[Rfam]
RNA: Small nucleolar RNA snoR14
Organism: Erythranthe guttata
RNA sequence: GCGAAGUGACGAUUAAUUCAAGUCUGUCAAUCCACUGAUUUAUUGUGAAGACAAAAUUGAAUCCCGACAGGUUCUGAUCGC
Numbered sequence: 001g002c003g004a005a006g007u008g009a010c011g012a013u014u015a016a017u018u019c020a021a022g023u024c025u026g027u028c029a030a031u032c033c034a035c036u037g038a039u040u041u042a043u044u045g046u047g048a049a050g051a052c053a054a055a056a057u058u059g060a061a062u063c064c065c066g067a068c069a070g071g072u073u074c075u076g077a078u079c080g081c
Base pairs, nucleotide, nucleotide: 001081002080003079004078